[Rfam]
RNA sequence: GGGCAAAAGUUGGGCAAGACUUUGGCACAACUUGGAUUCGGGCAACAUCAAAGUUUAACCCAAGUUUCAUCCAACUCUUGCCA
Dot-bracket structure: .(((((.(((((((..(((((..((...(((((.................)))))...))..)))))..))))))).))))).

Notes: The record is an 83-nucleotide RNA sequence from Caenorhabditis elegans, which matches "mir-266 microRNA precursor family" in Rfam. The base pairs follow the family's consensus structure, which was predicted with RNAalifold. A search with the family's covariance model found it, with a score of 86 bits. Rfam links the family to the GO terms RISC complex and miRNA-mediated post-transcriptional gene silencing.